[Rfam]
About this RNA: The family of this 115-nucleotide RNA from Burkholderia multivorans is "SAH (S-adenosyl-L-homocysteine) riboswitch aptamer".
RNA sequence: UUUUCCGAGGAGCGUUGCGACGGACCUUCUGCGUCCGCCAGGCUCGGAAGGCUUCACCAGGCAGCCGUGCGGCGACAUUCGCGCCGGCCCGCCUCCUGAACGGCGCUCACGUCAU
Numbered sequence: 001u002u003u004u005c006c007g008a009g010g011a012g013c014g015u016u017g018c019g020a021c022g023g024a025c026c027u028u029c030u031g032c033g034u035c036c037g038c039c040a041g042g043c044u045c046g047g048a049a050g051g052c053u054u055c056a057c058c059a060g061g062c063a064g065c066c067g068u069g070c071g072g073c074g075a076c077a078u079u080c081g082c083g084c085c086g087g088c089c090c091g092c093c094u095c096c097u098g099a100a101c102g103g104c105g106c107u108c109a110c111g112u113c114a115u
Base pairs, nucleotide, nucleotide: 002050003049004048005047006046007045008044021037022036023035024034025033
A search with the family's covariance model found it, with a score of 58 bits.